Notes: Small nucleolar RNA R64/Z200 family: a 94-nucleotide RNA from Eragrostis curvula. The organism belongs to Eragrostis, within Eukaryota. The base pairs follow the family's consensus structure, which was predicted with PFOLD. It is annotated as a C/D-box small nucleolar RNA. Rfam 15.1 lists 748 matches to the family in 228 species.
[Rfam]
RNA sequence: GGACUGCAAUGAGGAAUCAUGAAAACUUUUCGCAUGUCAGACUUCAGAGAUGCCACUGCAUUAAUGAGAAGAUAUUUCAUAUCCUGAGCAUUAU
Numbered sequence: 001g002g003a004c005u006g007c008a009a010u011g012a013g014g015a016a017u018c019a020u021g022a023a024a025a026c027u028u029u030u031c032g033c034a035u036g037u038c039a040g041a042c043u044u045c046a047g048a049g050a051u052g053c054c055a056c057u058g059c060a061u062u063a064a065u066g067a068g069a070a071g072a073u074a075u076u077u078c079a080u081a082u083c084c085u086g087a088g089c090a091u092u093a094u
Stems, first nucleotide, its partner, number of pairs: 001094001003092001005090003049062004